RNA sequence: GUAGAGGAGAUGGCGCAAGGGACACCAGCUAAGCCUUGGACGUUCCUGGAACCUUCGGACAUGUGUCCUCUUCUCCCUCCUCCAGG
Numbered sequence: 001g002u003a004g005a006g007g008a009g010a011u012g013g014c015g016c017a018a019g020g021g022a023c024a025c026c027a028g029c030u031a032a033g034c035c036u037u038g039g040a041c042g043u044u045c046c047u048g049g050a051a052c053c054u055u056c057g058g059a060c061a062u063g064u065g066u067c068c069u070c071u072u073c074u075c076c077c078u079c080c081u082c083c084a085g086g
Stems, first nucleotide, its partner, number of pairs: 004082006012076002015073001017071001019069007028060001036058005042052001043050002
Rfam assigns this 86-nucleotide sequence from Enhydra lutris to the family "mir-877 microRNA precursor family". The family has 8 seed sequences and 186 matches in Rfam 15.1. Its family is annotated with miRNA-mediated post-transcriptional gene silencing and RISC complex in the Gene Ontology. On this family, see Berezikov et al., Genome Res 2006: "Many novel mammalian microRNA candidates identified by extensive cloning and RAKE analysis".